[Rfam]
RNA: Lysine riboswitch aptamer
Organism: Loigolactobacillus backii
RNA sequence: AUAUAAGAUUGAGGUUGCGGAGAUCAAAAGUCACAAACUGGAAGCGAAAAGCGCUGGUGAAGGUUUGUAAAAGGGUGAUCCGCCGAAGUCAUGGCUUGCUUUUUCAAGUUGUGGUUGGGACUUGGCUUAAAAGGCUAAGAACUGUCGUAACAAUAGUUACGGAGCGCUAUCGACUGA
Numbered sequence: 001a002u003a004u005a006a007g008a009u010u011g012a013g014g015u016u017g018c019g020g021a022g023a024u025c026a027a028a029a030g031u032c033a034c035a036a037a038c039u040g041g042a043a044g045c046g047a048a049a050a051g052c053g054c055u056g057g058u059g060a061a062g063g064u065u066u067g068u069a070a071a072a073g074g075g076u077g078a079u080c081c082g083c084c085g086a087a088g089u090c091a092u093g094g095c096u097u098g099c100u101u102u103u104u105c106a107a108g109u110u111g112u113g114g115u116u117g118g119g120a121c122u123u124g125g126c127u128u129a130a131a132a133g134g135c136u137a138a139g140a141a142c143u144g145u146c147g148u149a150a151c152a153a154u155a156g157u158u159a160c161g162g163a164g165c166g167c168u169a170u171c172g173a174c175u176g177a
Stems, first nucleotide, its partner, number of pairs: 007171003011167001017083005025075001033068007087116012117143002121139007145162007